Plastid-rpl16 group II-D1 intron: a 47-nucleotide sequence from Coffea arabica. NCBI's taxonomy places the organism under Eukaryota, Streptophyta, asterids, Ixoroideae, Coffea. Plastid-rpl16 is a non-coding RNA (ncRNA) recognised in plastids. Gene Ontology term of the family: Group II intron splicing.
RNA sequence: AAGAGGUUCGAGACAAUAAAGACUGAGAAAAUUAACUUAAGAACAAA
Numbered sequence: 001a002a003g004a005g006g007u008u009c010g011a012g013a014c015a016a017u018a019a020a021g022a023c024u025g026a027g028a029a030a031a032u033u034a035a036c037u038u039a040a041g042a043a044c045a046a047a
Base pairs, nucleotide, nucleotide: 007041008040010038011037012036015033016032017031